Description:
This 158-nucleotide sequence from Aeromonas hydrophila belongs to the Rfam family "FMN riboswitch aptamer (RFN element)". NCBI's taxonomy places the organism under Bacteria, Pseudomonadota, Aeromonadales, Aeromonadaceae, Aeromonas hydrophila subsp. hydrophila. The family's consensus secondary structure is taken from published work.
RNA sequence: GCUUAUUCUCAGGGCGGGGUGAAAUUCCCCACCGGCGGUAUCCCGAUGUGACUCGGGGAGCCCGCGAGCGCCCGACCCGGUAUUGCACCGGGACGGGGUCAGCAGAUCCGGUGAGAUGCCGGAGCCGACGGUCAUAGUCCGGAUGAAAGAGGAUAAGA
Number, nucleotide and partner (000 for none) at each position: 001g000002c000003u156004u155005a154006u153007u152008c151009u150010c149011a000012g000013g000014g000015c000016g000017g029018g028019g027020u000021g000022a000023a000024a000025u000026u000027c019028c018029c017030c000031a138032c137033c127034g126035g065036c064037g063038g062039u000040a000041u000042c000043c000044c000045g000046a000047u000048g000049u000050g000051a000052c000053u000054c000055g000056g000057g000058g000059a000060g125061c124062c038063c037064g036065c035066g000067a000068g103069c102070g000071c000072c000073c000074g000075a000076c000077c000078c000079g000080g000081u000082a000083u000084u000085g000086c000087a000088c000089c000090g000091g000092g000093a000094c000095g000096g000097g000098g000099u000100c000101a000102g069103c068104a000105g000106a000107u123108c122109c121110g120111g119112u000113g000114a000115g000116a000117u000118g000119c111120c110121g109122g108123a107124g061125c060126c034127g033128a000129c141130g140131g139132u000133c000134a000135u000136a000137g032138u031139c131140c130141g129142g000143a000144u000145g000146a000147a000148a000149g010150a009151g008152g007153a006154u005155a004156a003157g000158a000